[Rfam]
RNA sequence: ACGGUUAUGAAUCAACACGUUGAUUUAUAAGCAUCGAAAUCCCCUGAGUGAAACAACGAAUUGCUGUGUGUAGUCUUUGCCCAUCUUGAUGAUGGGCUUUUUUUUAU
Numbered sequence: 001a002c003g004g005u006u007a008u009g010a011a012u013c014a015a016c017a018c019g020u021u022g023a024u025u026u027a028u029a030a031g032c033a034u035c036g037a038a039a040u041c042c043c044c045u046g047a048g049u050g051a052a053a054c055a056a057c058g059a060a061u062u063g064c065u066g067u068g069u070g071u072a073g074u075c076u077u078u079g080c081c082c083a084u085c086u087u088g089a090u091g092a093u094g095g096g097c098u099u100u101u102u103u104u105u106a107u
Stems, first nucleotide, its partner, number of pairs: 002022004032046002036042001062070003079097007

The family of this 107-nucleotide sequence from Cedecea neteri is "RprA RNA". From the family's description: Translational regulation of the stationary phase sigma factor RpoS is mediated by the formation of a double-stranded RNA stem-loop structure in the upstream region of the rpoS messenger RNA, occluding the translation initiation site. The organism belongs to Cedecea, within Bacteria. It scores 101 bits against the family's covariance model. Pairs were carried over by alignment from the consensus structure, which was predicted with PFOLD. By type it is a small RNA.